[Rfam]
RNA sequence: AGUUAGAGAUGAGGCGCGUCAAUCAAGAGUAAGUAAGGUGAGAAUCUGCAAAUACUUUACUGAAAGGGUGAGAUGCCGAAAUCGGAUAAAUUGUUGCAGCAGUUAUCUGGUUGGAUUCACAGGUUAAGAGCUAGGAAUCUGUCAUUAUUUGAUAAUAAUGGAGUGCAUCACUUGUA
Numbered sequence: 001a002g003u004u005a006g007a008g009a010u011g012a013g014g015c016g017c018g019u020c021a022a023u024c025a026a027g028a029g030u031a032a033g034u035a036a037g038g039u040g041a042g043a044a045u046c047u048g049c050a051a052a053u054a055c056u057u058u059a060c061u062g063a064a065a066g067g068g069u070g071a072g073a074u075g076c077c078g079a080a081a082u083c084g085g086a087u088a089a090a091u092u093g094u095u096g097c098a099g100c101a102g103u104u105a106u107c108u109g110g111u112u113g114g115a116u117u118c119a120c121a122g123g124u125u126a127a128g129a130g131c132u133a134g135g136a137a138u139c140u141g142u143c144a145u146u147a148u149u150u151g152a153u154a155a156u157a158a159u160g161g162a163g164u165g166c167a168u169c170a171c172u173u174g175u176a
Base pairs, nucleotide, nucleotide: 006171008169009168010167011166016076017075018074019073020072024068032061033060034059035058036057037056038055039054080112081111082110083109084108085107086106087105088104089103091101113140114139115138116137117136118135121132122131142161143160144159145158146157147156148155
The record is a 176-nucleotide RNA sequence from Macrococcus lamae, which matches "Lysine riboswitch aptamer" in Rfam. Pairs were carried over by alignment from the consensus structure, which is taken from published work.